Nucleotides: 205
Base pairs, nucleotide, nucleotide: 001080002079003078004077005076006075007074011070012069013068014067015066016065018046019045020044021043022042023041024040025039026038027037028036029035050064051063052062053061054060084151085150089146090145091144093142097137102126103125104124105123106122108120109119110118152181153180154179158176159175
Number, partner (000 for none) and nucleotide at each position: 001080u002079u003078a004077g005076c006075u007074a008000u009000u010000u011070u012069g013068g014067a015066u016065a017000g018046g019045u020044u021043u022042g023041u024040a025039u026038u027037c028036a029035u030000g031000a032000g033000u034000u035029g036028u037027g038026g039025a040024u041023a042022c043021a044020a045019a046018c047000a048000a049000g050064c051063a052062g053061a054060a055000a056000c057000c058000u059000g060054u061053u062052u063051u064050g065016u066015a067014u068013c069012u070011a071000u072000g073000a074007u075006g076005g077004c078003u079002g080001a081000a082000g083000a084151a085150u086000u087000u088000u089146g090145u091144a092000u093142g094000g095000a096000g097137c098000a099000a100000a101000a102126g103125c104124c105123g106122c107000g108120u109119a110118g111000a112000c113000a114000a115000u116000u117000u118110c119109u120108a121000a122106g123105u124104g125103g126102c127000g128000u129000a130000u131000g132000a133000a134000g135000a136000a137097g138000u139000u140000u141000u142093c143000u144091u145090a146089c147000u148000u149000u150085a151084u152181g153180a154179c155000u156000u157000u158176u159175a160000u161000c162000a163000u164000c165000c166000a167000u168000u169000u170000a171000g172000g173000c174000a175159u176158a177000u178000u179154g180153u181152c182000u183000a184000a185000a186000u187000g188000g189000a190000u191000u192000u193000u194000u195000u196000g197000u198000u199000u200000c201000a202000c203000u204000a205000a

A member of the RNA family "Enterococcus sRNA 2410" from Enterococcus rivorum, 205 nucleotides long. The family's consensus secondary structure was predicted with RNAfold. From the family's description: Produced as 2 transcripts on Northern blot. Expressed in mid, late exponential and early stationary phases of growth. Expression remained uniform under daptomycin exposure. The match comes from Rfam's covariance-model search (125 bits). The literature on the family includes a 2017 paper in Sci Rep by Sinel et al., "Small RNAs in vancomycin-resistant Enterococcus faecium involved in daptomycin response and resistance". Rfam classes the family as a small RNA.